[Rfam]
Background: Bacillus-plasmid RNA: a 57-nucleotide sequence from Senna tora. Taxonomically the source falls in Senna (Eukaryota, rosids, fabids, Caesalpinioideae). It scores 31 bits against the family's covariance model. The family's consensus secondary structure is taken from published work. Rfam classes the family as a small RNA.

RNA sequence: UCUGUCAACUAUAACGGGUAACAGUAAGGAGACUAAAUAGUUGACAGAAUUACAAAU
Number, nucleotide and partner (000 for none) at each position: 001u048002c047003u046004g045005u044006c043007a042008a041009c040010u000011a000012u000013a000014a000015c000016g000017g000018g000019u000020a000021a000022c000023a000024g000025u000026a000027a000028g000029g000030a000031g000032a000033c000034u000035a000036a000037a000038u000039a000040g009041u008042u007043g006044a005045c004046a003047g002048a001049a000050u000051u000052a000053c000054a000055a000056a000057u000